[Rfam]
RNA sequence: CGUUCCGAGGAGCGCUGCGACCGCGAGCAUGGCCAUCCGUGCGCUGCGGCCAGGCUCGGAGCGGCUUCCGCCCGGUUCGGCUCGGAGAUUUCCCGGCCUCGGUACGCGGGAGUGGGCAACGGCGCUCGCGAACC
Numbered sequence: 001c002g003u004u005c006c007g008a009g010g011a012g013c014g015c016u017g018c019g020a021c022c023g024c025g026a027g028c029a030u031g032g033c034c035a036u037c038c039g040u041g042c043g044c045u046g047c048g049g050c051c052a053g054g055c056u057c058g059g060a061g062c063g064g065c066u067u068c069c070g071c072c073c074g075g076u077u078c079g080g081c082u083c084g085g086a087g088a089u090u091u092c093c094c095g096g097c098c099u100c101g102g103u104a105c106g107c108g109g110g111a112g113u114g115g116g117c118a119a120c121g122g123c124g125c126u127c128g129c130g131a132a133c134c
Stems, first nucleotide, its partner, number of pairs: 002062007021049005